[Rfam]
RNA: Small nucleolar RNA SNORD26
Organism: Pseudonaja textilis
RNA sequence: CUACAAUGAAGAGAUGCUGAACUCUCUCUUUCUGAUGCUUCAAUGGAGAAUUGAAAGCCGUCUGAGUAGC
Numbered sequence: 001c002u003a004c005a006a007u008g009a010a011g012a013g014a015u016g017c018u019g020a021a022c023u024c025u026c027u028c029u030u031u032c033u034g035a036u037g038c039u040u041c042a043a044u045g046g047a048g049a050a051u052u053g054a055a056a057g058c059c060g061u062c063u064g065a066g067u068a069g070c
Base pairs, nucleotide, nucleotide: 001069002068003067004066